[Rfam]
RNA sequence: GGGUGCACCGCUGCCGAAGGCGCAGCGGCGCAGGCUUGACGGGUGGUCGGGCCGCCAUCC
Numbered sequence: 001g002g003g004u005g006c007a008c009c010g011c012u013g014c015c016g017a018a019g020g021c022g023c024a025g026c027g028g029c030g031c032a033g034g035c036u037u038g039a040c041g042g043g044u045g046g047u048c049g050g051g052c053c054g055c056c057a058u059c060c
Stems, first nucleotide, its partner, number of pairs: 005031002008028007041060007
Record summary: The family of this 60-nucleotide RNA is "nhaA-I RNA". Acidobacteria, Alphaproteobacteria, Betaproteobacteria and Gammaproteobacteria, Verrucomicrobia, cand. division NC10.